This 116-nucleotide sequence belongs to the Rfam family "MIR403 microRNA precursor family". Its family is annotated with miRNA-mediated post-transcriptional gene silencing and RISC complex in the Gene Ontology.

RNA sequence: GUAUUACAUGUUUUGUGCUUGAAUCUAAUUCAACAGGCUUUAUGUAAGAGAUUCUUUAACAAUUCCUAUAAUCUUUGUUGUUGGAUUAGAUUCACGCACAAACUCGUAAUCUGUCU
Numbered sequence: 001g002u003a004u005u006a007c008a009u010g011u012u013u014u015g016u017g018c019u020u021g022a023a024u025c026u027a028a029u030u031c032a033a034c035a036g037g038c039u040u041u042a043u044g045u046a047a048g049a050g051a052u053u054c055u056u057u058a059a060c061a062a063u064u065c066c067u068a069u070a071a072u073c074u075u076u077g078u079u080g081u082u083g084g085a086u087u088a089g090a091u092u093c094a095c096g097c098a099c100a101a102a103c104u105c106g107u108a109a110u111c112u113g114u115c116u
Stems, first nucleotide, its partner, number of pairs: 001114003005109001010104001012102007020094006027087003031083002
Background: The family's consensus secondary structure was predicted with WAR.